Rfam assigns this 84-nucleotide RNA sequence from Himantopus himantopus to the family "mir-3533 microRNA precursor family". Its family is annotated with RISC complex and miRNA-mediated post-transcriptional gene silencing in the Gene Ontology. Pairs were carried over by alignment from the consensus structure, which was predicted with RNAalifold.

RNA sequence: GGUAUGGAGUCCUGCGGUAUCCAUGAAACUACCUUCAACUCCAUCAUGAAGUGCGAUGUGGAUAUCCGUAAGGAUCUGUAUGCC
Dot-bracket structure: ((((((.((((((.(((..((((((....(.((((((.........))))).).).))))))...)))..)))).)).))))))